Rfam assigns this 512-nucleotide RNA from Actinomadura litoris to the family "Saccharopolyspora sRNA 350". The family has 2 seed sequences and 1,170 matches in Rfam 15.1. Rfam links the family to the GO term regulation of secondary metabolite biosynthetic process. The base pairs follow the family's consensus structure, which was predicted with RNAfold.
RNA sequence: CUGACGGUGUAGUCCCACUCGUCCGGCUCGUCGCCGGGGACGAGGAUCUGCUCGCCGAAGAAGUCGCCGUCGGCGAGCGUGCCGUGCACGGCCUCGGUGCCGUACUCGCCCGCGCCGAUCCGGCUGAGCUUGCCGUGCACGACCAGGACGACCUGGUCGACGGGGCUCCCCUGCUCGACGAUGACGUCGCCCGGCUCGUACUCGCGCUGGGUGAAGCGGCCCGCGAGUGCGUCCAGCGCGGGCUCGUCGUCGUAGCCGCGCAGCGGCGGCAGCUCGCCCAGCUCGCGCGGGAUCACCCGGACGUCGGCGCCGGUGGUCACGAAGGUCACCCGGCCGUCACCGAGCGUGUAGGUGAGGCGCCGGUUGACCCGGUAGGCGCCGCCCGACGCCUGGACCCAGGGCAGCAGUUUCAGCAGCCACCGGGAGGUGAUGCCCUGCAUCUGCGGGACGGACUUGGUCGUGGUCGCCAGGUUCCGUGCCGCCGAGGUACCGAGGCUCAACCGCUGGUCCGA
Numbered sequence: 001c002u003g004a005c006g007g008u009g010u011a012g013u014c015c016c017a018c019u020c021g022u023c024c025g026g027c028u029c030g031u032c033g034c035c036g037g038g039g040a041c042g043a044g045g046a047u048c049u050g051c052u053c054g055c056c057g058a059a060g061a062a063g064u065c066g067c068c069g070u071c072g073g074c075g076a077g078c079g080u081g082c083c084g085u086g087c088a089c090g091g092c093c094u095c096g097g098u099g100c101c102g103u104a105c106u107c108g109c110c111c112g113c114g115c116c117g118a119u120c121c122g123g124c125u126g127a128g129c130u131u132g133c134c135g136u137g138c139a140c141g142a143c144c145a146g147g148a149c150g151a152c153c154u155g156g157u158c159g160a161c162g163g164g165g166c167u168c169c170c171c172u173g174c175u176c177g178a179c180g181a182u183g184a185c186g187u188c189g190c191c192c193g194g195c196u197c198g199u200a201c202u203c204g205c206g207c208u209g210g211g212u213g214a215a216g217c218g219g220c221c222c223g224c225g226a227g228u229g230c231g232u233c234c235a236g237c238g239c240g241g242g243c244u245c246g247u248c249g250u251c252g253u254a255g256c257c258g259c260g261c262a263g264c265g266g267c268g269g270c271a272g273c274u275c276g277c278c279c280a281g282c283u284c285g286c287g288c289g290g291g292a293u294c295a296c297c298c299g300g301a302c303g304u305c306g307g308c309g310c311c312g313g314u315g316g317u318c319a320c321g322a323a324g325g326u327c328a329c330c331c332g333g334c335c336g337u338c339a340c341c342g343a344g345c346g347u348g349u350a351g352g353u354g355a356g357g358c359g360c361c362g363g364u365u366g367a368c369c370c371g372g373u374a375g376g377c378g379c380c381g382c383c384c385g386a387c388g389c390c391u392g393g394a395c396c397c398a399g400g401g402c403a404g405c406a407g408u409u410u411c412a413g414c415a416g417c418c419a420c421c422g423g424g425a426g427g428u429g430a431u432g433c434c435c436u437g438c439a440u441c442u443g444c445g446g447g448a449c450g451g452a453c454u455u456g457g458u459c460g461u462g463g464u465c466g467c468c469a470g471g472u473u474c475c476g477u478g479c480c481g482c483c484g485a486g487g488u489a490c491c492g493a494g495g496c497u498c499a500a501c502c503g504c505u506g507g508u509c510c511g512a
Stems, first nucleotide, its partner, number of pairs: 006396003010392003014388001021334002025330001028328001030326003035321001042318002046314003053309006060239001064235001066233001068231003071117004081109001083108002086105001088103005123228003128224002132220002136215001137212002140209002146203001150201001156197001161194001163192004167184002171180001240302001243299001246296002249293003257287004262283003266277003335348003359383001361381003368376002397437007405429002409424003413421001443482004448477005453471006486510002490506001492504001494502001